[Rfam]
The record is a 47-nucleotide sequence, which matches "Glutamine riboswitch aptamer (glnA leader)" in Rfam. For this family Rfam cites "Bacterial aptamers that selectively bind glutamine" (Ames and Breaker, RNA Biol, 2011).
RNA sequence: AUCGUUCAGUCCCAUAAGGGACCGCAAGUAAGCCGACACGGAACGGA
Numbered sequence: 001a002u003c004g005u006u007c008a009g010u011c012c013c014a015u016a017a018g019g020g021a022c023c024g025c026a027a028g029u030a031a032g033c034c035g036a037c038a039c040g041g042a043a044c045g046g047a
Stems, first nucleotide, its partner, number of pairs: 003045005009022005025046001
Description
Its family is annotated with glutamine binding in the Gene Ontology.